Glycine riboswitch aptamer: a 94-nucleotide RNA from Alsobacter soli. The match comes from Rfam's covariance-model search (42 bits).

[Rfam]
RNA sequence: CUCUGGAAAGAGGCGUUCGCGCAGGCGCACGCCCACCGACGGGGGUAACUCGAUCCUUCGGGAGCGAGGAAAUCUCUCAGGUCUUCGGACAGAG
Numbered sequence: 001c002u003c004u005g006g007a008a009a010g011a012g013g014c015g016u017u018c019g020c021g022c023a024g025g026c027g028c029a030c031g032c033c034c035a036c037c038g039a040c041g042g043g044g045g046u047a048a049c050u051c052g053a054u055c056c057u058u059c060g061g062g063a064g065c066g067a068g069g070a071a072a073u074c075u076c077u078c079a080g081g082u083c084u085u086c087g088g089a090c091a092g093a094g
Base pairs, nucleotide, nucleotide: 001094002093003092004091005090012033013032014031015030035082036081037080038078039077042076043075044074049069050068